[Rfam]
RNA sequence: AAGCUUAUGAUGCCAUUUUGUGACAACAUUAAUGAAGUUGUGAUUUAAAAUUUAUUUUAUUUUACUGAUCUU
Number, nucleotide and partner (000 for none) at each position: 001a072002a071003g070004c000005u000006u000007a000008u000009g000010a000011u000012g000013c000014c000015a000016u000017u000018u000019u000020g000021u000022g000023a000024c000025a000026a000027c000028a000029u000030u000031a000032a041033u040034g039035a000036a000037g000038u000039u034040g033041u032042g000043a000044u000045u000046u000047a000048a000049a000050a000051u000052u000053u000054a000055u000056u000057u000058u000059a000060u000061u000062u000063u000064a000065c000066u000067g000068a000069u000070c003071u002072u001
The record is a 72-nucleotide RNA from Molossus molossus, which matches "Small nucleolar RNA Me28S-Gm3255" in Rfam. For this family Rfam cites "Genome-wide analyses of two families of snoRNA genes from Drosophila melanogaster, demonstrating the extensive utilization of introns for coding of snoRNAs" (Huang et al., RNA, 2005). Its Rfam clan is "SNORD60 clan". The match comes from Rfam's covariance-model search (50 bits). Lineage of the source: Eukaryota > Opisthokonta > Theria > Laurasiatheria > Molossus.